[Rfam]
RNA sequence: GUCUCGCAGCUGAGGUCUAGUGCAAGGUUUUUGCUCUCUAGCAUAUGUACUAACCAAUGUUGCGAUGUUGUGUUUGCAUAUUGUCCGAUCACUAUCGGAUAGGUAGUUUAACUACCAAUUUUACUUCCUGUAUAUUUGACCUGUCUGUCAAAAUCAUUUUUAGCACUGUGCCCCAACACAGUGCUAUUUUUU
Numbered sequence: 001g002u003c004u005c006g007c008a009g010c011u012g013a014g015g016u017c018u019a020g021u022g023c024a025a026g027g028u029u030u031u032u033g034c035u036c037u038c039u040a041g042c043a044u045a046u047g048u049a050c051u052a053a054c055c056a057a058u059g060u061u062g063c064g065a066u067g068u069u070g071u072g073u074u075u076g077c078a079u080a081u082u083g084u085c086c087g088a089u090c091a092c093u094a095u096c097g098g099a100u101a102g103g104u105a106g107u108u109u110a111a112c113u114a115c116c117a118a119u120u121u122u123a124c125u126u127c128c129u130g131u132a133u134a135u136u137u138g139a140c141c142u143g144u145c146u147g148u149c150a151a152a153a154u155c156a157u158u159u160u161u162a163g164c165a166c167u168g169u170g171c172c173c174c175a176a177c178a179c180a181g182u183g184c185u186a187u188u189u190u191u192u
Base pairs, nucleotide, nucleotide: 009054011052012051015050016049028047030045032043033042034041035040081101083100084099085098086097087096088095102116103115104114105113106112107111132160134158136156162185163184164183165182166181167180168179169178
RNA: GcvB RNA